[Rfam]
RNA sequence: CCCCUUCAAUCCCGACGGCUUUGGGCCUAUAUCCAUGGGGUCCGGCUUGCCGGACUAUGAGGAUAAACGCGCACGUAAUAAGCGGACUGGACCCGGGUGCGAUUCCCGGCGGCUCCACCAAUCUUCCCCCGGGUAUCGCCGGAAAGUGCGGGGCCGAUCAGCAUCGACAGACGUGUAAAGGUGUUGCUUUCUUCCGGCGUGGCUCACCGUCUCGGGCCAUUAAUGUAAAUGCGAACGAUAACUUCGCUGAAGAAGUCCGUUUGGCCGCGUAAGCGACCCGAUAGAUUUCGACCUAAACUCCUAACGUCUUAGCAGCGUUAGGCGGGGCCCGGAGGGCGCCUUGCAACAGAAGCCCUCCACC
Numbered sequence: 001c002c003c004c005u006u007c008a009a010u011c012c013c014g015a016c017g018g019c020u021u022u023g024g025g026c027c028u029a030u031a032u033c034c035a036u037g038g039g040g041u042c043c044g045g046c047u048u049g050c051c052g053g054a055c056u057a058u059g060a061g062g063a064u065a066a067a068c069g070c071g072c073a074c075g076u077a078a079u080a081a082g083c084g085g086a087c088u089g090g091a092c093c094c095g096g097g098u099g100c101g102a103u104u105c106c107c108g109g110c111g112g113c114u115c116c117a118c119c120a121a122u123c124u125u126c127c128c129c130c131g132g133g134u135a136u137c138g139c140c141g142g143a144a145a146g147u148g149c150g151g152g153g154c155c156g157a158u159c160a161g162c163a164u165c166g167a168c169a170g171a172c173g174u175g176u177a178a179a180g181g182u183g184u185u186g187c188u189u190u191c192u193u194c195c196g197g198c199g200u201g202g203c204u205c206a207c208c209g210u211c212u213c214g215g216g217c218c219a220u221u222a223a224u225g226u227a228a229a230u231g232c233g234a235a236c237g238a239u240a241a242c243u244u245c246g247c248u249g250a251a252g253a254a255g256u257c258c259g260u261u262u263g264g265c266c267g268c269g270u271a272a273g274c275g276a277c278c279c280g281a282u283a284g285a286u287u288u289c290g291a292c293c294u295a296a297a298c299u300c301c302u303a304a305c306g307u308c309u310u311a312g313c314a315g316c317g318u319u320a321g322g323c324g325g326g327g328c329c330c331g332g333a334g335g336g337c338g339c340c341u342u343g344c345a346a347c348a349g350a351a352g353c354c355c356u357c358c359a360c361c
Stems, first nucleotide, its partner, number of pairs: 040055005059194005069187002071184004083173002087170003093109005110156007195209003200219003204215002325341004331358006

The record is a 361-nucleotide RNA from Alphaproteobacteria bacterium PA2, which matches "Alphaproteobacteria transfer-messenger RNA" in Rfam. Pairs were carried over by alignment from the consensus structure, which is taken from published work. Lineage of the source: Bacteria > Pseudomonadati > Pseudomonadota > Alphaproteobacteria. A search with the family's covariance model found it, with a score of 238 bits.